[Rfam]
This 71-nucleotide RNA sequence from Patiria pectinifera belongs to the Rfam family "tRNA". Rfam's curators put it in the seed alignment. Pairs were carried over by alignment from the consensus structure, which is taken from published work.

RNA sequence: AGUAAAGUAAGCUAAUAAAAAGCUUUUGGGUUCAUACCUCAAAAAUGGAAGGAUAAAUACCUCCCUUUAUU
Numbered sequence: 001a002g003u004a005a006a007g008u009a010a011g012c013u014a015a016u017a018a019a020a021a022g023c024u025u026u027u028g029g030g031u032u033c034a035u036a037c038c039u040c041a042a043a044a045a046u047g048g049a050a051g052g053a054u055a056a057a058u059a060c061c062u063c064c065c066u067u068u069a070u071u
Stems, first nucleotide, its partner, number of pairs: 001071007010024004026042005047064003051061002